[Rfam]
RNA sequence: GGCGUGUUAGUUUAAUGGUAGAACAAAGUGUUACGGCCGCUAUGAUAUAGGUUCAAGUCCUGUACACGUUU
Numbered sequence: 001g002g003c004g005u006g007u008u009a010g011u012u013u014a015a016u017g018g019u020a021g022a023a024c025a026a027a028g029u030g031u032u033a034c035g036g037c038c039g040c041u042a043u044g045a046u047a048u049a050g051g052u053u054c055a056a057g058u059c060c061u062g063u064a065c066a067c068g069u070u071u
Base pairs, nucleotide, nucleotide: 001070002069003068004067005066006065007064010024011023012022013021027041028040029039030038047063048062049061050060051059
This 71-nucleotide RNA from Hyphodiscus hymeniophilus belongs to the Rfam family "tRNA". Lineage of the source: Eukaryota > Ascomycota > Leotiomycetes > Hyphodiscaceae > Hyphodiscus. The family has 954 seed sequences and 5,335,975 matches in Rfam 15.1. It scores 50 bits against the family's covariance model.